[Rfam]
RNA sequence: GUCGACAAGGGCAAACCCGGUGCGAACCGGGGACGCAAAGCCACGGGACCCACGAGGUCAGCCGGGCUGCCGAAG
Numbered sequence: 001g002u003c004g005a006c007a008a009g010g011g012c013a014a015a016c017c018c019g020g021u022g023c024g025a026a027c028c029g030g031g032g033a034c035g036c037a038a039a040g041c042c043a044c045g046g047g048a049c050c051c052a053c054g055a056g057g058u059c060a061g062c063c064g065g066g067c068u069g070c071c072g073a074a075g
Stems, first nucleotide, its partner, number of pairs: 003072002011036002016031006034061001039068004044064003047059003

A member of the RNA family "c-di-GMP-I-GGC riboswitch aptamer" from Arthrobacter sp. RIT-PI-e, 75 nucleotides long. It scores 70 bits against the family's covariance model. The family's consensus secondary structure is taken from published work. For this family Rfam cites "Recognition of the bacterial second messenger cyclic diguanylate by its cognate riboswitch" (Kulshina et al., Nat Struct Mol Biol, 2009). Its family is annotated with cyclic-di-GMP binding in the Gene Ontology. NCBI's taxonomy places the organism under Bacteria, Bacillati, Actinomycetota, Micrococcales, Arthrobacter.